[Rfam]
This 101-nucleotide RNA from Pteropus alecto belongs to the Rfam family "GRIK4 3 prime UTR element". For this family Rfam cites "A common variant in the 3'UTR of the GRIK4 glutamate receptor gene affects transcript abundance and protects against bipolar disorder" (Pickard et al., Proc Natl Acad Sci U S A, 2008). The base pairs follow the family's consensus structure, which was predicted with CMfinder.
RNA sequence: UAGCCCUCACCGGACAGGAUGCUCUGAGGCUAGAUGGGGAGGCGGGAGGGCCGGGAGGGCCGGGAGGGCGCUGCUGUCUGUCCAGACCCCGGAAUCGUACG
Numbered sequence: 001u002a003g004c005c006c007u008c009a010c011c012g013g014a015c016a017g018g019a020u021g022c023u024c025u026g027a028g029g030c031u032a033g034a035u036g037g038g039g040a041g042g043c044g045g046g047a048g049g050g051c052c053g054g055g056a057g058g059g060c061c062g063g064g065a066g067g068g069c070g071c072u073g074c075u076g077u078c079u080g081u082c083c084a085g086a087c088c089c090c091g092g093a094a095u096c097g098u099a100c101g
Stems, first nucleotide, its partner, number of pairs: 003060005010029002